[Rfam]
RNA: Alphaproteobacteria transfer-messenger RNA
RNA sequence: CCUCUUUUCACGUCCGGCGAUCCCUCUUAUAUUUGCAGAUGCCGGACCAACUCCGGCUAUGGCGAUAAACGUUCGAUGCAAUAAACCUUUCGGACCCGGGGGCGGUACCCGGCGCCUCCACCAUGUCUCAUGAAGUCCGCUUUUCGGAUCCGAUGGGACAUGGCGGGGGCGAAAUAGGAUCGACGAGGGCGUAAAGAUCGGAUUUUUGCUCGGAAUGGUUCCGCCGUUAUCGGGCCGUAUCAAUAGUUGCAAACGACAACUAUGCGGAAGCACGUCUCGCCGCGUAAGCGGUGCGAUAGCUUCGAAUUAAGCCCUGGGGGUUCGCACUUCUAGGCGGGGCUCGGAGGCGCCUGGCAACAGAAGCCUCCACU
Dot-bracket structure: ........................................(((((.......)))))...(((((.....(.(((((........(((.(((...(((((.......)))))(((((((.............................................)))))))............)))))).......)))).).).)))))[[[..(((..((.]]].....)).)))...................................................................................................[[[[..((((((]]]]..........))))))...